[Rfam]
RNA sequence: GAUGGACGCCUAAUCCUGCCGCUGUCCGGUCACCGCACUCACUCGCCAGGCAGGAGCGGGGAACCCAAUAUCACCGCCGAUCCGAAACGGAACGGCUCGGGGUGAAGUCGUGCGCGCCACGGCCGGGCAUCUCCAGCCCGAACCCGACAGCUCACCUCGCAGGCGACGGAGAGGAAUCCA
Numbered sequence: 001g002a003u004g005g006a007c008g009c010c011u012a013a014u015c016c017u018g019c020c021g022c023u024g025u026c027c028g029g030u031c032a033c034c035g036c037a038c039u040c041a042c043u044c045g046c047c048a049g050g051c052a053g054g055a056g057c058g059g060g061g062a063a064c065c066c067a068a069u070a071u072c073a074c075c076g077c078c079g080a081u082c083c084g085a086a087a088c089g090g091a092a093c094g095g096c097u098c099g100g101g102g103u104g105a106a107g108u109c110g111u112g113c114g115c116g117c118c119a120c121g122g123c124c125g126g127g128c129a130u131c132u133c134c135a136g137c138c139c140g141a142a143c144c145c146g147a148c149a150g151c152u153c154a155c156c157u158c159g160c161a162g163g164c165g166a167c168g169g170a171g172a173g174g175a176a177u178c179c180a
Base pairs, nucleotide, nucleotide: 007165008164009163010162014055015054016053017052018051019050020049056160057159058158059157060156061155066099100145101144102143108122109121110120111119125139126138127137128136